[Rfam]
RNA sequence: GAGACAAUCUUAUAGUGCAGGACUUGCUUCAGUGGGGCUUUGGUGCUUACUGAGUCUGCCUCUUGAGUGUGUCAUU
Numbered sequence: 001g002a003g004a005c006a007a008u009c010u011u012a013u014a015g016u017g018c019a020g021g022a023c024u025u026g027c028u029u030c031a032g033u034g035g036g037g038c039u040u041u042g043g044u045g046c047u048u049a050c051u052g053a054g055u056c057u058g059c060c061u062c063u064u065g066a067g068u069g070u071g072u073c074a075u076u
Stems, first nucleotide, its partner, number of pairs: 001075001003073004009067004015061001017059003021056003029053008037044002
RNA: mir-9229 microRNA precursor family